[Rfam]
RNA sequence: AGUUAUAGCUAGGGGUGCCAAACGGCUGAGAGGAUUAAAAUCCAACCCUUGAACCUGAUGUGGUUAGUACCACCGUAGGAAAGCUUUUUUCAAAUAAU
Numbered sequence: 001a002g003u004u005a006u007a008g009c010u011a012g013g014g015g016u017g018c019c020a021a022a023c024g025g026c027u028g029a030g031a032g033g034a035u036u037a038a039a040a041u042c043c044a045a046c047c048c049u050u051g052a053a054c055c056u057g058a059u060g061u062g063g064u065u066a067g068u069a070c071c072a073c074c075g076u077a078g079g080a081a082a083g084c085u086u087u088u089u090u091c092a093a094a095u096a097a098u
Stems, first nucleotide, its partner, number of pairs: 007085004011049004017026003033042003054079004060073004

Overview
This 98-nucleotide sequence from Sporomusa malonica belongs to the Rfam family "TPP riboswitch aptamer (THI element)". The match comes from Rfam's covariance-model search (72 bits). Pairs were carried over by alignment from the consensus structure, which is taken from published work.